[Rfam]
RNA sequence: CGUCUUACCCAGCAGUGUUUGGGUGUUGCUUGGCAUUCUCUAAUACUGCCGGGUAAUGAUGGA
Numbered sequence: 001c002g003u004c005u006u007a008c009c010c011a012g013c014a015g016u017g018u019u020u021g022g023g024u025g026u027u028g029c030u031u032g033g034c035a036u037u038c039u040c041u042a043a044u045a046c047u048g049c050c051g052g053g054u055a056a057u058g059a060u061g062g063a
Stems, first nucleotide, its partner, number of pairs: 001061004005056006012049006019043005
mir-8/mir-141/mir-200 microRNA precursor family: a 63-nucleotide sequence from Tupaia belangeri.
For this family Rfam cites "Identification of novel genes coding for small expressed RNAs" (Lagos-Quintana et al., Science, 2001).
The family's consensus secondary structure was predicted with RNAalifold.